[Rfam]
Notes: This 82-nucleotide sequence belongs to the Rfam family "tRNA". By type it is a transfer RNA. The family's consensus secondary structure is taken from published work. Rfam's curators put it in the seed alignment. Clan: tRNA clan.
RNA sequence: GUGGACGUGCCGGAGUGGUUAUCGGGAAUGACUAGAAAUCAUGGAGGCUUUGCCCGCGCACGUUUGAAUCUUGCCGUUUACG
Numbered sequence: 001g002u003g004g005a006c007g008u009g010c011c012g013g014a015g016u017g018g019u020u021a022u023c024g025g026g027a028a029u030g031a032c033u034a035g036a037a038a039u040c041a042u043g044g045a046g047g048c049u050u051u052g053c054c055c056g057c058g059c060a061c062g063u064u065u066g067a068a069u070c071u072u073g074c075c076g077u078u079u080a081c082g
Base pairs, nucleotide, nucleotide: 001081002080003079004078005077006076007075010025011024012023013022028042029041030040031039058074059073060072062070